[Rfam]
RNA sequence: AGAGGCCCUCCAUGGCCUGGGCAGGAUGCUUGCCUCGUCGCCGCGGUGACAAAGCAAGCAUUCAGCCAGGCCACUCACGCUGCCCGC
Numbered sequence: 001a002g003a004g005g006c007c008c009u010c011c012a013u014g015g016c017c018u019g020g021g022c023a024g025g026a027u028g029c030u031u032g033c034c035u036c037g038u039c040g041c042c043g044c045g046g047u048g049a050c051a052a053a054g055c056a057a058g059c060a061u062u063c064a065g066c067c068a069g070g071c072c073a074c075u076c077a078c079g080c081u082g083c084c085c086g087c
Base pairs, nucleotide, nucleotide: 004084005083006082013073014072015071016070017069020067021066022065024063025062026061027060028059029058030057031056032055033054037050038049039048040047041046
The record is an 87-nucleotide sequence from Myotis davidii, which matches "mir-9195 microRNA precursor family" in Rfam. Pairs were carried over by alignment from the consensus structure, which was predicted with RNAalifold. Rfam links the family to the GO terms miRNA-mediated post-transcriptional gene silencing and RISC complex. The source organism's lineage runs through Eukaryota, Metazoa, Deuterostomia, Laurasiatheria and Myotis.